[Rfam]
RNA sequence: CCGAGUUGAGGUAGUAGGUUGUAUGGUUUAGAAUUACACCCUGGGAGUUAACUGUACAACCUUCUAGCUUUCCUUGA
Numbered sequence: 001c002c003g004a005g006u007u008g009a010g011g012u013a014g015u016a017g018g019u020u021g022u023a024u025g026g027u028u029u030a031g032a033a034u035u036a037c038a039c040c041c042u043g044g045g046a047g048u049u050a051a052c053u054g055u056a057c058a059a060c061c062u063u064c065u066a067g068c069u070u071u072c073c074u075u076g077a
Base pairs, nucleotide, nucleotide: 002076003075004074005073008070009069010068012066013065014064016062017061018060019059020058021057022056023055024054025053026052027051040047

A member of the RNA family "let-7 microRNA precursor family" from Megalops atlanticus, 77 nucleotides long. About the family: This family represents the microRNAs (miRNA) let-7 and mir-98. let-7 was identified from a study of developmental timing in C. elegans, and was later shown to be part of a much larger class of non-coding RNAs termed miRNAs. NCBI's taxonomy places the organism under Eukaryota, Opisthokonta, Bilateria, Euteleostomi, Megalops. The base pairs follow the family's consensus structure, which was predicted with RNAalifold. The literature on the family includes a 2001 paper in Cell by Ambros, "microRNAs: tiny regulators with great potential".